MIR396 microRNA precursor family: a 116-nucleotide sequence from Hibiscus syriacus.
RNA sequence: GGUGAUGCUUUUCCACGGCUUUCUUGAACUUCCAUUGUGUACUUAAAAAUAUUAAGCAAAAAGCUUUUAUAUAGCACGCCAUGGAAGUUCAAGAAAGCUGUGGGAGAACAUGGCUA
Numbered sequence: 001g002g003u004g005a006u007g008c009u010u011u012u013c014c015a016c017g018g019c020u021u022u023c024u025u026g027a028a029c030u031u032c033c034a035u036u037g038u039g040u041a042c043u044u045a046a047a048a049a050u051a052u053u054a055a056g057c058a059a060a061a062a063g064c065u066u067u068u069a070u071a072u073a074g075c076a077c078g079c080c081a082u083g084g085a086a087g088u089u090c091a092a093g094a095a096a097g098c099u100g101u102g103g104g105a106g107a108a109c110a111u112g113g114c115u116a
Base pairs, nucleotide, nucleotide: 003113005111006110007109013103014102015101017099018098019097020096021095022094024092025091026090027089029087030086031085032084033083
A search with the family's covariance model found it, with a score of 87 bits. The base pairs follow the family's consensus structure, which was predicted with WAR. Rfam 15.1 lists 744 matches to the family in 207 species.